The record is a 249-nucleotide part of an RNA from Brucella abortus, which matches "Bacterial large subunit ribosomal RNA" in Rfam. The family's consensus secondary structure is taken from published work. The source organism's lineage runs through Bacteria, Alphaproteobacteria, Hyphomicrobiales, Brucellaceae and Brucella abortus bv. 2. On this family, see Yusupov et al., Science 2001: "Crystal structure of the ribosome at 5.5 A resolution". It is one of the family's seed sequences.
[Rfam]
RNA sequence: GGAAUAUUGACAGGAUCUGUCCCUAGUACGAGAGGACCGGGAUGGACGUAUCUCUGGUGGACCUGUUGUGGCGCCAGCCGCAUAGCAGGGUAGCUAUAUACGGACGGGAUAACCGCUGAAGGCAUCUAAGCGGGAAACCCACCUGAAAACGAGUAUUCCCUAUCAGAGCCGUGGAAGACCACCACGUUGAUAGGCCGGGUGUGGAAGUGCGGCAACGCAUGCAGCUUACCGGUACUAAUAGCUCGAUCG
Numbered sequence: 001g002g003a004a005u006a007u008u009g010a011c012a013g014g015a016u017c018u019g020u021c022c023c024u025a026g027u028a029c030g031a032g033a034g035g036a037c038c039g040g041g042a043u044g045g046a047c048g049u050a051u052c053u054c055u056g057g058u059g060g061a062c063c064u065g066u067u068g069u070g071g072c073g074c075c076a077g078c079c080g081c082a083u084a085g086c087a088g089g090g091u092a093g094c095u096a097u098a099u100a101c102g103g104a105c106g107g108g109a110u111a112a113c114c115g116c117u118g119a120a121g122g123c124a125u126c127u128a129a130g131c132g133g134g135a136a137a138c139c140c141a142c143c144u145g146a147a148a149a150c151g152a153g154u155a156u157u158c159c160c161u162a163u164c165a166g167a168g169c170c171g172u173g174g175a176a177g178a179c180c181a182c183c184a185c186g187u188u189g190a191u192a193g194g195c196c197g198g199g200u201g202u203g204g205a206a207g208u209g210c211g212g213c214a215a216c217g218c219a220u221g222c223a224g225c226u227u228a229c230c231g232g233u234a235c236u237a238a239u240a241g242c243u244c245g246a247u248c249g
Base pairs, nucleotide, nucleotide: 001159002158003157004156005155006154007153008152011145012144013143014142017045018044019043020042021041022040023039047102048101049100050099051098055096056095057094062089063088064087065086066085067082068081069080070079071078072077106140107139108138113133114132115131116130117129163246166244167243168242169241170186171185172184173183174182191237192236193235194233195232196231197230198229199227201225207220208219209218210217211216